[Rfam]
RNA sequence: CAUCAUGUUUCCAAGCGCUGUGGCUGGUUGUGGCUAUAGGAUCUCCAACUGCAUGCGGGAACAAUCUGCAGAGACUUUGACAGCGUAGGUCAGUACAAUACCUGCAGCUGCCCCUCACCUUUCCUAUGUGU
Numbered sequence: 001c002a003u004c005a006u007g008u009u010u011c012c013a014a015g016c017g018c019u020g021u022g023g024c025u026g027g028u029u030g031u032g033g034c035u036a037u038a039g040g041a042u043c044u045c046c047a048a049c050u051g052c053a054u055g056c057g058g059g060a061a062c063a064a065u066c067u068g069c070a071g072a073g074a075c076u077u078u079g080a081c082a083g084c085g086u087a088g089g090u091c092a093g094u095a096c097a098a099u100a101c102c103u104g105c106a107g108c109u110g111c112c113c114c115u116c117a118c119c120u121u122u123c124c125u126a127u128g129u130g131u
Stems, first nucleotide, its partner, number of pairs: 011039001017034006068124001070122004083111002086104004
Rfam assigns this 131-nucleotide sequence from Otolemur garnettii to the family "Small nucleolar RNA SNORA44". A search with the family's covariance model found it, with a score of 119 bits. Rfam's curators write: ACA44 is a member of the H/ACA class of snoRNA that guide the sites of modification of uridines to pseudouridines. Its Rfam clan is "SNORA44 clan". The family has 27 seed sequences and 1,056 matches in Rfam 15.1. Lineage of the source: Eukaryota > Teleostomi > Tetrapoda > Boreoeutheria > Otolemur. Gene Ontology terms of the family: nucleolus and RNA processing. The family's consensus secondary structure was predicted with PFOLD.